[Rfam]
RNA sequence: AAAGGCUUAGUUAAGAGGCAGAAAUCAAAUAUAUGUUGGUCAAUGUAAUAUUGAUCAGUCAUAACCUAAGGCAUUUUGAGUGGAAAAUUACAGCUAUUCUUUUUAGCCAUUAAUUGUCCGCCAAGCUGUCUUAGACAUUU
Numbered sequence: 001a002a003a004g005g006c007u008u009a010g011u012u013a014a015g016a017g018g019c020a021g022a023a024a025u026c027a028a029a030u031a032u033a034u035g036u037u038g039g040u041c042a043a044u045g046u047a048a049u050a051u052u053g054a055u056c057a058g059u060c061a062u063a064a065c066c067u068a069a070g071g072c073a074u075u076u077u078g079a080g081u082g083g084a085a086a087a088u089u090a091c092a093g094c095u096a097u098u099c100u101u102u103u104u105a106g107c108c109a110u111u112a113a114u115u116g117u118c119c120g121c122c123a124a125g126c127u128g129u130c131u132u133a134g135a136c137a138u139u140u
Base pairs, nucleotide, nucleotide: 004019006017007016008015038056039055040054041053042052066134067133068132069131070130071129072128075125076124077123078122080121081120082119083118084117086115087114088113089112090111
Dot-bracket structure: ...(.(((......))).)..................(((((.........))))).........(((((((..((((.(((((.(((((....................))))).)))))))))..)))))))......
Rfam assigns this 140-nucleotide sequence from Ricinus communis to the family "Small nucleolar RNA U19". It scores 62 bits against the family's covariance model. Taxonomically the source falls in Ricinus (Eukaryota, eudicotyledons, Pentapetalae, Acalyphoideae). The family has 3 seed sequences and 421 matches in Rfam 15.1. By type it is an H/ACA-box small nucleolar RNA.